Rfam assigns this 105-nucleotide sequence from Chelatococcus reniformis to the family "ZMP/ZTP riboswitch aptamer (pfl RNA motif)". The source organism's lineage runs through Bacteria, Pseudomonadati, Pseudomonadota, Hyphomicrobiales and Chelatococcus.

RNA sequence: GCUCCGCCGCGCGACUGGCGAGUGAGAUGGGACACCAUCGGGGAGCGCGGCCAGGCGUCCGUCCGUGACGGGCGCGCAGACACGCCGUUCGCCUGGGCAGCCGGU
Numbered sequence: 001g002c003u004c005c006g007c008c009g010c011g012c013g014a015c016u017g018g019c020g021a022g023u024g025a026g027a028u029g030g031g032a033c034a035c036c037a038u039c040g041g042g043g044a045g046c047g048c049g050g051c052c053a054g055g056c057g058u059c060c061g062u063c064c065g066u067g068a069c070g071g072g073c074g075c076g077c078a079g080a081c082a083c084g085c086c087g088u089u090c091g092c093c094u095g096g097g098c099a100g101c102c103g104g105u
Stems, first nucleotide, its partner, number of pairs: 003054001006051007015042002017093005027038004084098003